Nuclear RNase P: a 669-nucleotide RNA sequence from Ceratobasidium theobromae. A search with the family's covariance model found it, with a score of 57 bits. Its family is annotated with ribonuclease P activity, tRNA processing and ribonuclease P complex in the Gene Ontology. From the family's description: Ribonuclease P (RNase P) is a ubiquitous endoribonuclease, found in archaea, bacteria and eukarya as well as chloroplasts and mitochondria. By type it is a ribozyme.

RNA sequence: ACAGUCCGAAAGCCGCAUUUGCUCGCCACGCGCACGACGACUUGUUCGUCCUUUUGCGAGCGGGCUAAGGUCUGAGCAUUCUAGUCCCCUUGUACUCGUGUCUAGCUGGCACCGCCCAUAAUCGGGCGAGCAGAGCAUCAGACAUGCGCUCGCUGUAGUUCGUACCGCCCAAAGACCUGUCAAAGGGAGGGCAUAGCGCAGCUCGAGCUUGGAACAACUCUGCGGGGACCGAGCCGCUCCUCGCGCCUCUUGGCAACCUCUUUCCCAUCCGUUGCGCACGUAGUUUAGCGCCAGCUCUUUUGGGAGUCGGAUUUACCGCCGAGGUUCGACGUGCUAGGUUGGCCAGGGGUUGAUAUGUGGGUCUUGUGAGCUCGCCUCGUUGCCCAGUGUCUUUGAAAUAAAGCUCUGGUUUCGAGAAUGGGUCAAGAUCUUCCUCUAUCGCCCCCCCGAUUCUACAUACAAAGGGCGCCGCCUAUGUUUAUGGUAACGCUCGUAGAAUUGGACCCAUGUGCGCGUACGUGGGUGGCCGAAUCUAGCUGGAUGAUCGAGGAGGGUUAUAGUCGAGGAGUGGCUCUUGAGUUCACUUUGCGGCUCGCGUGUUUUCGUCCCGAUUUAUACACGGUGGACGAGUGUUAGCGCGAAACUCGAUUCAGACUACUCUUGGUCUGU
Numbered sequence: 001a002c003a004g005u006c007c008g009a010a011a012g013c014c015g016c017a018u019u020u021g022c023u024c025g026c027c028a029c030g031c032g033c034a035c036g037a038c039g040a041c042u043u044g045u046u047c048g049u050c051c052u053u054u055u056g057c058g059a060g061c062g063g064g065c066u067a068a069g070g071u072c073u074g075a076g077c078a079u080u081c082u083a084g085u086c087c088c089c090u091u092g093u094a095c096u097c098g099u100g101u102c103u104a105g106c107u108g109g110c111a112c113c114g115c116c117c118a119u120a121a122u123c124g125g126g127c128g129a130g131c132a133g134a135g136c137a138u139c140a141g142a143c144a145u146g147c148g149c150u151c152g153c154u155g156u157a158g159u160u161c162g163u164a165c166c167g168c169c170c171a172a173a174g175a176c177c178u179g180u181c182a183a184a185g186g187g188a189g190g191g192c193a194u195a196g197c198g199c200a201g202c203u204c205g206a207g208c209u210u211g212g213a214a215c216a217a218c219u220c221u222g223c224g225g226g227g228a229c230c231g232a233g234c235c236g237c238u239c240c241u242c243g244c245g246c247c248u249c250u251u252g253g254c255a256a257c258c259u260c261u262u263u264c265c266c267a268u269c270c271g272u273u274g275c276g277c278a279c280g281u282a283g284u285u286u287a288g289c290g291c292c293a294g295c296u297c298u299u300u301u302g303g304g305a306g307u308c309g310g311a312u313u314u315a316c317c318g319c320c321g322a323g324g325u326u327c328g329a330c331g332u333g334c335u336a337g338g339u340u341g342g343c344c345a346g347g348g349g350u351u352g353a354u355a356u357g358u359g360g361g362u363c364u365u366g367u368g369a370g371c372u373c374g375c376c377u378c379g380u381u382g383c384c385c386a387g388u389g390u391c392u393u394u395g396a397a398a399u400a401a402a403g404c405u406c407u408g409g410u411u412u413c414g415a416g417a418a419u420g421g422g423u424c425a426a427g428a429u430c431u432u433c434c435u436c437u438a439u440c441g442c443c444c445c446c447c448c449g450a451u452u453c454u455a456c457a458u459a460c461a462a463a464g465g466g467c468g469c470c471g472c473c474u475a476u477g478u479u480u481a482u483g484g485u486a487a488c489g490c491u492c493g494u495a496g497a498a499u500u501g502g503a504c505c506c507a508u509g510u511g512c513g514c515g516u517a518c519g520u521g522g523g524u525g526g527c528c529g530a531a532u533c534u535a536g537c538u539g540g541a542u543g544a545u546c547g548a549g550g551a552g553g554g555u556u557a558u559a560g561u562c563g564a565g566g567a568g569u570g571g572c573u574c575u576u577g578a579g580u581u582c583a584c585u586u587u588g589c590g591g592c593u594c595g596c597g598u599g600u601u602u603u604c605g606u607c608c609c610g611a612u613u614u615a616u617a618c619a620c621g622g623u624g625g626a627c628g629a630g631u632g633u634u635a636g637c638g639c640g641a642a643a644c645u646c647g648a649u650u651c652a653g654a655c656u657a658c659u660c661u662u663g664g665u666c667u668g669u
Base pairs, nucleotide, nucleotide: 001669002668003667004666007663008662009661012592013591014590015589016588017587021061022060023059024058025057036050037049038048039047040046072653073652074651075650076649084229085228086227087226098112099111100110101109102108113128114127115126116125117124130223131222132221133220134219135218148208149207150206593641594640595639596638597637598636